[Rfam]
RNA sequence: UGAUGUCAGGGCCAAAAGUAGGUAGUAAUGUAUGUUUACAUGCAAAUUGCUACCUACUAGCUUGGCCCACCAAACACCGACAAGAAGCAGAUUUGCUUGCAAAUAUGCGGGAUUGGAGGUGUUUGUAGAAUUGCGGAAAUUGCGUAGCAAUGCAGCAAUUCGCAGCAUCA
Dot-bracket structure: ((((((...((((...((((((((((((((((((....)))))..))))))))))))).....))))...((((((((..(((...(((.(((((....))))).)))....)))..))))))))..(((((((....((((.....))))...)))))))...))))))